[Rfam]
RNA sequence: UAACAACGAGGGCGGAAGAGGCAGCCGCCGCACCCUCGGGUCUGAAAGAGAUGCAGGACUGUCACCCUGCCGUUGUUU
Numbered sequence: 001u002a003a004c005a006a007c008g009a010g011g012g013c014g015g016a017a018g019a020g021g022c023a024g025c026c027g028c029c030g031c032a033c034c035c036u037c038g039g040g041u042c043u044g045a046a047a048g049a050g051a052u053g054c055a056g057g058a059c060u061g062u063c064a065c066c067c068u069g070c071c072g073u074u075g076u077u078u
Stems, first nucleotide, its partner, number of pairs: 002077007011029005020063004031048001032041003053070005
Rfam assigns this 78-nucleotide sequence to the family "skipping-rope RNA". By type it is a small RNA.